[Rfam]
RNA sequence: AGGUCACAAGUUGUUGACCAUAGCAGAAGCACUUAUGUAGCAGCCCUGUCAGAUCCCUAUGAAUCUAUGAAUUCUGCU
Numbered sequence: 001a002g003g004u005c006a007c008a009a010g011u012u013g014u015u016g017a018c019c020a021u022a023g024c025a026g027a028a029g030c031a032c033u034u035a036u037g038u039a040g041c042a043g044c045c046c047u048g049u050c051a052g053a054u055c056c057c058u059a060u061g062a063a064u065c066u067a068u069g070a071a072u073u074c075u076g077c078u
Stems, first nucleotide, its partner, number of pairs: 013046001016045001018043001022078007029041002051066004056061001